[Rfam]
RNA sequence: AAGCAGUCACAAAAAGUAUUGCUUUUUGAACGUUGGCUUUGCCAACGGCAGCGAAGCUGUGAACAAUCCUACAAGGAUUGUGAAUAACUUUUAG
Numbered sequence: 001a002a003g004c005a006g007u008c009a010c011a012a013a014a015a016g017u018a019u020u021g022c023u024u025u026u027u028g029a030a031c032g033u034u035g036g037c038u039u040u041g042c043c044a045a046c047g048g049c050a051g052c053g054a055a056g057c058u059g060u061g062a063a064c065a066a067u068c069c070u071a072c073a074a075g076g077a078u079u080g081u082g083a084a085u086a087a088c089u090u091u092u093a094g
Stems, first nucleotide, its partner, number of pairs: 010028008031047007048060005063081008085094001087092001